The family of this 90-nucleotide RNA sequence from Branchiostoma floridae is "mir-2060 microRNA precursor family".
[Rfam]
RNA sequence: GUACGUUUGUGUUUGAAUAGUGUUCAGCACCAAGGACAGGUACGUUUGUGUGUGAAUGGUAUUCAGCACGAAGGACAGGUACGUUUGUGU
Numbered sequence: 001g002u003a004c005g006u007u008u009g010u011g012u013u014u015g016a017a018u019a020g021u022g023u024u025c026a027g028c029a030c031c032a033a034g035g036a037c038a039g040g041u042a043c044g045u046u047u048g049u050g051u052g053u054g055a056a057u058g059g060u061a062u063u064c065a066g067c068a069c070g071a072a073g074g075a076c077a078g079g080u081a082c083g084u085u086u087g088u089g090u
Stems, first nucleotide, its partner, number of pairs: 005080006018071001020069005026063002029060004034051001036049004

Lineage of the source: Eukaryota > Eumetazoa > Bilateria > Leptocardii > Branchiostoma.